[Rfam]
RNA sequence: GAGAUAUGAUGAGGUUCUAAUUGGUCCGUGUUUCUGAUUUAACCGUGAGCGACAUUUUUUAACCAAACUCUGAUCUC
Numbered sequence: 001g002a003g004a005u006a007u008g009a010u011g012a013g014g015u016u017c018u019a020a021u022u023g024g025u026c027c028g029u030g031u032u033u034c035u036g037a038u039u040u041a042a043c044c045g046u047g048a049g050c051g052a053c054a055u056u057u058u059u060u061a062a063c064c065a066a067a068c069u070c071u072g073a074u075c076u077c
Stems, first nucleotide, its partner, number of pairs: 001077004
The record is a 77-nucleotide RNA from Hibiscus syriacus, which matches "Small nucleolar RNA SNORD18" in Rfam. The organism belongs to Hibiscus, within Eukaryota. On this family, see Prislei et al., Nucleic Acids Res 1993: "Two different snoRNAs are encoded in introns of amphibian and human L1 ribosomal protein genes". Gene Ontology terms of the family: nucleolus and RNA processing. It is annotated as a C/D-box small nucleolar RNA. Its Rfam clan is "SNORD18 clan". The family has 16 seed sequences and 2,622 matches in Rfam 15.1.